[Rfam]
RNA sequence: GUCGGAUAUGGAGAUAUAUAUCCAAAGACAGUGCUUGGCAAACUUGUUGGUGCAACUUGCUGCAUUACUGGUGUUCUGGUCAUUGCCCUCCCCAUUCCCAUCAUUGUAAACAAC
Numbered sequence: 001g002u003c004g005g006a007u008a009u010g011g012a013g014a015u016a017u018a019u020a021u022c023c024a025a026a027g028a029c030a031g032u033g034c035u036u037g038g039c040a041a042a043c044u045u046g047u048u049g050g051u052g053c054a055a056c057u058u059g060c061u062g063c064a065u066u067a068c069u070g071g072u073g074u075u076c077u078g079g080u081c082a083u084u085g086c087c088c089u090c091c092c093c094a095u096u097c098c099c100a101u102c103a104u105u106g107u108a109a110a111c112a113a114c
Stems, first nucleotide, its partner, number of pairs: 001114002004111001007108005013102003020095002037077002040074001049063001
Shown here is a 114-nucleotide RNA from Halocynthia roretzi, a member of the family "Potassium channel RNA editing signal". The family's consensus secondary structure is taken from published work. Lineage of the source: Eukaryota > Opisthokonta > Ascidiacea > Stolidobranchia > Halocynthia. Rfam classes the family as a cis-regulatory element.